[Rfam]
RNA sequence: GGGCUGGCUUUAGCCCAGCGGUUCCUUCAGUUCCUUCGAGUCUGGCUUCCCAACCGCCCGGGCCGAUUGGUUCAAGACCCCCGUGCGCUCUCCAGUCCUUAA
Numbered sequence: 001g002g003g004c005u006g007g008c009u010u011u012a013g014c015c016c017a018g019c020g021g022u023u024c025c026u027u028c029a030g031u032u033c034c035u036u037c038g039a040g041u042c043u044g045g046c047u048u049c050c051c052a053a054c055c056g057c058c059c060g061g062g063c064c065g066a067u068u069g070g071u072u073c074a075a076g077a078c079c080c081c082c083g084u085g086c087g088c089u090c091u092c093c094a095g096u097c098c099u100u101a102a
Stems, first nucleotide, its partner, number of pairs: 002097006013086002016083001018082001020080002026076002030072001

Rfam assigns this 102-nucleotide RNA sequence from Cavia porcellus to the family "Vault RNA". On this family, see Stadler et al., Mol Biol Evol 2009: "Evolution of Vault RNAs". The source organism's lineage runs through Eukaryota, Opisthokonta, Chordata, Vertebrata and Cavia. It is annotated as a non-coding RNA gene.